Plastid-psbA-1 3UTR RNA: a 117-nucleotide RNA sequence from Triticum turgidum. The family's consensus secondary structure was predicted with LocARNA. Clan: Plastid-psbA 3UTR RNA clan. Rfam's curators write: Plastid psbA-1 is a non-coding RNA (ncRNA) present in plastids. It was identified in inverted repeat sequences in the 3 prime untranslate region (3UTR) of photosystem II quinone-binding protein (psbA).
RNA sequence: UUGAAAUUCCAUUUAUUAAUGGAUAAGGUUUUUGUGCUGACAUAUAAGAAUUUGAAGAAAGAAAGGACAAAAAUACCUAAUAUCUUGUUCUAGCAAGAUAUUGGGUAUUUCUGUCUU
Dot-bracket structure: .......(((((......)))))........................................((((((.((((((.(((.(((((........))))).))).)))))).))))))